[Rfam]
RNA: mir-27 microRNA precursor family
Organism: Triplophysa tibetana
RNA sequence: GUGAGGGGCAGGACUUAGCUCUCUCUGUGAACAGAUCUCGGAUAUCCUAUGUUCACAGUGGCUAAGUUCCGCUUCUCUG
Numbered sequence: 001g002u003g004a005g006g007g008g009c010a011g012g013a014c015u016u017a018g019c020u021c022u023c024u025c026u027g028u029g030a031a032c033a034g035a036u037c038u039c040g041g042a043u044a045u046c047c048u049a050u051g052u053u054c055a056c057a058g059u060g061g062c063u064a065a066g067u068u069c070c071g072c073u074u075c076u077c078u079g
Stems, first nucleotide, its partner, number of pairs: 011069010027056007